mir-29 microRNA precursor family: a 69-nucleotide RNA from Megalops atlanticus.
[Rfam]
RNA sequence: GCAUGACCGAUUUCCUCUGGUGUUAAGAGUCAGCUGCAGUUUUCUAGCACCAUUUGAAAUCGGUUGUGU
Numbered sequence: 001g002c003a004u005g006a007c008c009g010a011u012u013u014c015c016u017c018u019g020g021u022g023u024u025a026a027g028a029g030u031c032a033g034c035u036g037c038a039g040u041u042u043u044c045u046a047g048c049a050c051c052a053u054u055u056g057a058a059a060u061c062g063g064u065u066g067u068g069u
Stems, first nucleotide, its partner, number of pairs: 001069004005064001007063008018052005026045003
The base pairs follow the family's consensus structure, which was predicted with PFOLD. This family represents the microRNA (miRNA) precursors mir-29.